[Rfam]
RNA sequence: UUUUCAUCAAGAGUUGGCUGAGGGACUGGCCCUAUGAAGCCGCGGCAACCAUCGCAUAUGCAUUUGCAUUGGCGGAACGGUGCCAAUUCCUGCAGAAGCCCGCAAGGGACUGGCAGAUGAAGA
Numbered sequence: 001u002u003u004u005c006a007u008c009a010a011g012a013g014u015u016g017g018c019u020g021a022g023g024g025a026c027u028g029g030c031c032c033u034a035u036g037a038a039g040c041c042g043c044g045g046c047a048a049c050c051a052u053c054g055c056a057u058a059u060g061c062a063u064u065u066g067c068a069u070u071g072g073c074g075g076a077a078c079g080g081u082g083c084c085a086a087u088u089c090c091u092g093c094a095g096a097a098g099c100c101c102g103c104a105a106g107g108g109a110c111u112g113g114c115a116g117a118u119g120a121a122g123a
Base pairs, nucleotide, nucleotide: 001123002122003121004120005119006118007117008116013043015042016041017040018039022032023031024030026092028090029089044084045083046082047081049080050079052075053074054073088115093112094111095110
Rfam assigns this 123-nucleotide RNA sequence from Sporomusa ovata to the family "SAM riboswitch aptamer (S box leader)". The organism belongs to Sporomusa, within Bacteria. Pairs were carried over by alignment from the consensus structure, which is taken from published work. Its family is annotated with regulation of gene expression in the Gene Ontology.